The record is a 53-nucleotide sequence, which matches "nhaA-I RNA" in Rfam.
[Rfam]
RNA sequence: GGGUGUCGGGCGAAUCAACGUUCGACAGGUCAUGCGCAGGUCGGGCCGCCGCG
Numbered sequence: 001g002g003g004u005g006u007c008g009g010g011c012g013a014a015u016c017a018a019c020g021u022u023c024g025a026c027a028g029g030u031c032a033u034g035c036g037c038a039g040g041u042c043g044g045g046c047c048g049c050c051g052c053g
Stems, first nucleotide, its partner, number of pairs: 005026008035053003039050003
The family's consensus secondary structure is taken from published work. The sequence is in the family's curated seed alignment. Rfam's curators write: Acidobacteria, Alphaproteobacteria, Betaproteobacteria and Gammaproteobacteria, Verrucomicrobia, cand. division NC10.